[Rfam]
RNA sequence: ACCGAAGCGAACGUAUUCCAAAUUUGUUUAAAAACCCCGGCCGGCUAACUGGACUCGGCGCCAGACUGAUCAAUACUUGAACUGUCGGGCGACAUCUCCCCCAAGUGUCGCGCCGGUAAAGGUACCAAGGGACCGCGUGCCUUUGUUUUACUCCUAAUGGUCUUAACCCGGAUUCACCCCCCAGAACCCGG
Numbered sequence: 001a002c003c004g005a006a007g008c009g010a011a012c013g014u015a016u017u018c019c020a021a022a023u024u025u026g027u028u029u030a031a032a033a034a035c036c037c038c039g040g041c042c043g044g045c046u047a048a049c050u051g052g053a054c055u056c057g058g059c060g061c062c063a064g065a066c067u068g069a070u071c072a073a074u075a076c077u078u079g080a081a082c083u084g085u086c087g088g089g090c091g092a093c094a095u096c097u098c099c100c101c102c103a104a105g106u107g108u109c110g111c112g113c114c115g116g117u118a119a120a121g122g123u124a125c126c127a128a129g130g131g132a133c134c135g136c137g138u139g140c141c142u143u144u145g146u147u148u149u150a151c152u153c154c155u156a157a158u159g160g161u162c163u164u165a166a167c168c169c170g171g172a173u174u175c176a177c178c179c180c181c182c183a184g185a186a187c188c189c190g191g
Base pairs, nucleotide, nucleotide: 039162040161041160042159043158084117085116086115087114089111091109093107094106095105118144119143120142121141122140123139124138125137126135168191169190170189171188173186174185175184